[Rfam]
RNA: Bacterial RNase P class A
RNA sequence: GCAGCAGGUCGGUUUGUCGCCCCGUAAACCGGGGAGGAAAGUCCGGGCAACGCAGAGCACCAUAUUUCCUAACGGGAAGCUGUUCGUGAGGGCAGAUUAGCGUAACAGAAAAUAACCGCCUUGUUUACAAGGUAAGGGUGAAAAGGUGAGGUAAAAGCUCACCGGGUACCAUGGCAACAUGGUAUGCCGUACGCAUUAUGGGUUGCAAGGCCAUGUAUAUCGGAUAAUUAGGGUUGCUCGCCCGAUGCCGAGGGGUAGGCCGCUUAGAUAAAUGACAAACAUCCCUUAUGGGACACAGAACCCGGCUUAUAGACCGGCUGCUUUU
Numbered sequence: 001g002c003a004g005c006a007g008g009u010c011g012g013u014u015u016g017u018c019g020c021c022c023c024g025u026a027a028a029c030c031g032g033g034g035a036g037g038a039a040a041g042u043c044c045g046g047g048c049a050a051c052g053c054a055g056a057g058c059a060c061c062a063u064a065u066u067u068c069c070u071a072a073c074g075g076g077a078a079g080c081u082g083u084u085c086g087u088g089a090g091g092g093c094a095g096a097u098u099a100g101c102g103u104a105a106c107a108g109a110a111a112a113u114a115a116c117c118g119c120c121u122u123g124u125u126u127a128c129a130a131g132g133u134a135a136g137g138g139u140g141a142a143a144a145g146g147u148g149a150g151g152u153a154a155a156a157g158c159u160c161a162c163c164g165g166g167u168a169c170c171a172u173g174g175c176a177a178c179a180u181g182g183u184a185u186g187c188c189g190u191a192c193g194c195a196u197u198a199u200g201g202g203u204u205g206c207a208a209g210g211c212c213a214u215g216u217a218u219a220u221c222g223g224a225u226a227a228u229u230a231g232g233g234u235u236g237c238u239c240g241c242c243c244g245a246u247g248c249c250g251a252g253g254g255g256u257a258g259g260c261c262g263c264u265u266a267g268a269u270a271a272a273u274g275a276c277a278a279a280c281a282u283c284c285c286u287u288a289u290g291g292g293a294c295a296c297a298g299a300a301c302c303c304g305g306c307u308u309a310u311a312g313a314c315c316g317g318c319u320g321c322u323u324u325u
Base pairs, nucleotide, nucleotide: 001321002320003319004318005317007315008314009313010312011310012280013279014278015277016276017275018274020034021033022032023031024030039308040307041306043305044304045303046302047301048205049204050203051202055239056238057237058236060201061200062199063198064197065079066078067077068076069075080095082093083092084091085090096196097195100194101193102192103191104190116137117136118133119132120131121130122129123128145163146162147161148160149159150158165187166185167184168183169182170181171180172179173178209261210260211259212258220251221250222249223248231243232242233241234240